[Rfam]
RNA: SAM riboswitch aptamer (S box leader)
Organism: Heyndrickxia shackletonii
RNA sequence: CUCUUAUCCCGAGAUGGCGGAGGGACAGGCCCGAUGAAGCCCAGCAACCAGCUUUUUAGGUGCAUAUAAUAAAAAUGAAAGCUUAGUAGAUAAGUUGAAGAGUCAUUUUUAUAAGCAUGCUAAAAUGAAAAGGUGCUAACCUGUAGCAAGGUAAUUCCUUGAACGAUAAGAG
Number, nucleotide and partner (000 for none) at each position: 001c172002u171003c170004u169005u168006a167007u166008c165009c000010c000011g000012a000013g042014a000015u000016g041017g040018c039019g000020g000021a000022g032023g031024g030025a000026c146027a000028g144029g142030c024031c023032c022033g000034a000035u000036g000037a000038a000039g018040c017041c016042c013043a137044g136045c135046a134047a000048c133049c132050a000051g000052c127053u000054u000055u000056u000057u000058a000059g000060g000061u000062g000063c000064a000065u000066a000067u000068a000069a000070u000071a000072a000073a000074a000075a000076u000077g000078a000079a000080a000081g000082c000083u000084u000085a000086g000087u000088a000089g000090a000091u000092a000093a000094g000095u000096u000097g000098a000099a000100g000101a000102g000103u000104c000105a000106u000107u000108u000109u000110u000111a000112u000113a000114a000115g000116c000117a000118u000119g000120c000121u000122a000123a000124a000125a000126u000127g052128a000129a000130a000131a000132g049133g048134u046135g045136c044137u043138a000139a000140c000141c000142u029143g000144u028145a000146g026147c161148a160149a159150g158151g157152u000153a000154a000155u000156u000157c151158c150159u149160u148161g147162a000163a000164c000165g008166a007167u006168a005169a004170g003171a002172g001